A member of the RNA family "Bacterial RNase P class A" from Nocardioides agariphilus, 386 nucleotides long. A search with the family's covariance model found it, with a score of 281 bits. The source organism's lineage runs through Bacteria, Actinomycetota, Propionibacteriales, Nocardioidaceae and Nocardioides. The family's RNA type in Rfam is ribozyme.
RNA sequence: GGAGCUGGCCGGGCGACCGCGGCACACGCCUUCGGGCGUGGGUCGAGGAAGGUCCGGGCUCCACAGGGCAGGGCGGUGGGCAACACCCACCCGGGGUGACCCGCGGGACAGUGCCACAGAGAACAGACCGCCGGCACGGACCUCGGUUCGAGUCGGUAAGGGUGAAACGGUGGUGCAAGAGACCACCAGCGACCGGGGCGACCCGGUCGGCUCGGCAAACCCCGCCCGGAGCAAGGUCGAACAGCGUGCGUUCGAGGGCGGCCCGCCCGAGUACGCGGGUAGACCGCAGGAGGCCGCCGGCAACGGUGGUCGUAGAUGGAUGGUCGCCCCCCGGACGACCGUGAGGUCACCGGGGACAGAACCCGGCCUACAGGCCAGCUCCUCCG
Number, nucleotide and partner (000 for none) at each position: 001g382002g381003a380004g379005c378006u377007g376008g375009c374010c373011g371012g328013g327014c326015g325016a324017c323018c322019g000020c045021g044022g043023c042024a000025c040026a039027c038028g037029c000030c000031u000032u000033c000034g000035g000036g000037c028038g027039u026040g025041g000042g023043u022044c021045g020046a000047g000048g000049a000050a369051g368052g367053u000054c366055c365056g364057g363058g362059c231060u230061c229062c228063a000064c000065a000066g264067g263068g262069c261070a000071g227072g226073g225074c224075g223076g090077u089078g088079g087080g086081c000082a000083a000084c000085a000086c080087c079088c078089a077090c076091c105092c103093g102094g101095g100096g000097u000098g000099a000100c095101c094102c093103g092104c000105g091106g222107g221108a000109c000110a000111g220112u219113g216114c215115c214116a000117c000118a000119g000120a000121g000122a000123a000124c000125a000126g000127a000128c161129c160130g157131c156132c155133g154134g153135c152136a000137c150138g149139g148140a147141c146142c000143u000144c000145g000146g141147u140148u139149c138150g137151a000152g135153u134154c133155g132156g131157u130158a000159a000160g129161g128162g000163u000164g000165a000166a000167a000168c000169g187170g186171u185172g184173g183174u182175g000176c000177a000178a000179g000180a000181g000182a174183c173184c172185a171186c170187c169188a000189g211190c209191g208192a207193c206194c205195g204196g203197g202198g000199c000200g000201a000202c197203c196204c195205g194206g193207u192208c191209g190210g000211c189212u000213c000214g115215g114216c113217a000218a000219a112220c111221c107222c106223c075224g074225c073226c072227c071228g062229g061230a060231g059232c000233a000234a000235g285236g284237u283238c282239g000240a000241a000242c000243a000244g276245c275246g274247u273248g272249c271250g000251u000252u000253c000254g000255a000256g268257g267258g266259c265260g000261g069262c068263c067264c066265g259266c258267c257268c256269g000270a000271g249272u248273a247274c246275g245276c244277g000278g000279g000280u000281a000282g238283a237284c236285c235286g000287c000288a000289g000290g000291a000292g311293g310294c309295c308296g307297c306298c305299g304300g000301c000302a000303a000304c299305g298306g297307u296308g295309g294310u293311c292312g000313u000314a000315g000316a000317u000318g000319g000320a000321u000322g018323g017324u016325c015326g014327c013328c012329c000330c000331c000332c000333g000334g000335a000336c000337g000338a000339c000340c000341g000342u000343g000344a000345g000346g000347u000348c000349a000350c000351c000352g000353g000354g000355g000356a000357c000358a000359g000360a000361a000362c058363c057364c056365g055366g054367c052368c051369u050370a000371c011372a000373g010374g009375c008376c007377a006378g005379c004380u003381c002382c001383u000384c000385c000386g000